Alphaproteobacteria transfer-messenger RNA: a 354-nucleotide RNA from Rhodopseudomonas palustris. By type it is a non-coding RNA gene.
[Rfam]
RNA sequence: GGGCUUCCGCUACCGAAAAUCGCCCCUAUAUUUGCAGUGCCAGUGCGCUGGCUAUGACAAUAAACCGCCGUCGCAAUAAACCAUUCGGACCCGGGGGCAGUACCCGGCGCCUCCACCAAAGUCCGCGAAAUCCGCGGGCUUCGGCGGGGGCGAAACAGGAUCGACGAGGGCGUAAAGGGCGAGCUUUUGUCCGGAAUGGUUCCGCCGUGAUCGGGCCAUGCAAUAGUUGCCAACGACAACUAUGCUCCGGUUGCUCAGGCAGCGUAACGCUGCUUGAAAGACCACAUGAAAGUCCUGGCGGGUUAAGCGCCGCCAGGCGGGGUUCGGAGGCGCCUGGCAACAGAAGCCUCCACU
Numbered sequence: 001g002g003g004c005u006u007c008c009g010c011u012a013c014c015g016a017a018a019a020u021c022g023c024c025c026c027u028a029u030a031u032u033u034g035c036a037g038u039g040c041c042a043g044u045g046c047g048c049u050g051g052c053u054a055u056g057a058c059a060a061u062a063a064a065c066c067g068c069c070g071u072c073g074c075a076a077u078a079a080a081c082c083a084u085u086c087g088g089a090c091c092c093g094g095g096g097g098c099a100g101u102a103c104c105c106g107g108c109g110c111c112u113c114c115a116c117c118a119a120a121g122u123c124c125g126c127g128a129a130a131u132c133c134g135c136g137g138g139c140u141u142c143g144g145c146g147g148g149g150g151c152g153a154a155a156c157a158g159g160a161u162c163g164a165c166g167a168g169g170g171c172g173u174a175a176a177g178g179g180c181g182a183g184c185u186u187u188u189g190u191c192c193g194g195a196a197u198g199g200u201u202c203c204g205c206c207g208u209g210a211u212c213g214g215g216c217c218a219u220g221c222a223a224u225a226g227u228u229g230c231c232a233a234c235g236a237c238a239a240c241u242a243u244g245c246u247c248c249g250g251u252u253g254c255u256c257a258g259g260c261a262g263c264g265u266a267a268c269g270c271u272g273c274u275u276g277a278a279a280g281a282c283c284a285c286a287u288g289a290a291a292g293u294c295c296u297g298g299c300g301g302g303u304u305a306a307g308c309g310c311c312g313c314c315a316g317g318c319g320g321g322g323u324u325c326g327g328a329g330g331c332g333c334c335u336g337g338c339a340a341c342a343g344a345a346g347c348c349u350c351c352a353c354u
Base pairs, nucleotide, nucleotide: 039052040051041050042049043048056191057190058189059188060187067184068183069181070180071179072178081170082169085167086166087165091107092106093105094104095103108152109151110150111149112148113147114146192207193206194205197218198217199216202214203213320335321334322333323332326351327350328349329348330347331346